Rfam assigns this 290-nucleotide sequence from Shimia abyssi to the family "5' ureB small RNA". Lineage of the source: Bacteria > Pseudomonadota > Rhodobacterales > Roseobacteraceae > Shimia. The literature on the family includes a 2013 paper in J Bacteriol by Wen et al., "Helicobacter pylori 5'ureB-sRNA, a cis-encoded antisense small RNA, negatively regulates ureAB expression by transcription termination". The base pairs follow the family's consensus structure, which was predicted with mfold.
RNA sequence: CGUCUUCGAUCUGUUGUGGGCAGAUGAAGUGGAUGUGGCUAUCGAAACCGCCGGCGGUGAGGAUUUUGCCCUCUCCGGCGAUGGCUUCGGUGCCGGGGCCGACAAUGAUGUUGACGCCCGGUUGCGUGUCAGGGUUGCCGGCCUUGCCGAUCUUGGCGACGCGUCCGUUCUUGAGGCCGACAUCAGCCUUGUAAAUGCCGGUGUGAUCCACGAUCAGCGCGUUAGUGAUAACCGUGUCGACCGCCCCUUCGGCGCGGGUGGUCUGGGCCUGGCCCAUGCCGUCCCGAAUG
Dot-bracket structure: (((.(..((..(((((.(((.((......(((.((.(..(....)..))))))...(((.......))).)).)))((..(.(.(....(((((.((((.(((...(.........)...)))))...))..))).)).).).)..)).....)))))......(((...((.((((........((.(((........((......)).....))).))..(.(....((..(.(........).))).....).)..).))).))..))).........))..).)))